Rfam assigns this 112-nucleotide RNA from Clostridium sp. USBA 49 to the family "SAM riboswitch aptamer (S box leader)". About the family: The SAM riboswitch is found upstream of a number of genes which code for proteins involved in methionine or cysteine biosynthesis in Gram-positive bacteria. The SAM riboswitch acts at the level of transcription termination control. The predicted structure consists of a complex stem-loop region followed by a single stem loop terminator region. The base pairs follow the family's consensus structure, which is taken from published work. It scores 90 bits against the family's covariance model. The organism belongs to Clostridium, within Bacteria.
Nucleotides: 112
Stems, first nucleotide, its partner, number of pairs: 001112008013041001015040003021031003025082004042074004047070002051065004078104001083101006
Number, partner (000 for none) and nucleotide at each position: 001112u002111u003110c004109u005108u006107a007106u008105c009000a010000a011000g012000a013041g014000a015040g016039g017038c018000g019000g020000a021031g022030g023029g024000a025082c026081u027080g028079g029023c030022c031021c032000u033000a034000a035000g036000a037000a038017g039016c040015c041013c042074g043073a044072c045071a046000a047070c048069c049000u050000a051065u052064g053063u054062c055000a056000u057000u058000u059000u060000a061000a062054g063053a064052c065051a066000a067000a068000a069048g070047g071045u072044g073043u074042c075000a076000a077000u078104u079028c080027c081026a082025g083101c084100a085099g086098a087097g088096a089000u090000g091000u092000a093000u094000u095000a096088u097087u098086u099085c100084u101083g102000a103000g104078a105008g106007a107006u108005a109004a110003g111002g112001g